[Rfam]
RNA sequence: CCGAGGCCUUACGACCUCGGCAAUUAUAUGUCGCCCUUUCAGGGCU
Numbered sequence: 001c002c003g004a005g006g007c008c009u010u011a012c013g014a015c016c017u018c019g020g021c022a023a024u025u026a027u028a029u030g031u032c033g034c035c036c037u038u039u040c041a042g043g044g045c046u
Base pairs, nucleotide, nucleotide: 001020002019003018004017005016006015008013033045034044035043036042037041
RNA: Acido-Lenti-1 RNA
Organism: Williamwhitmania taraxaci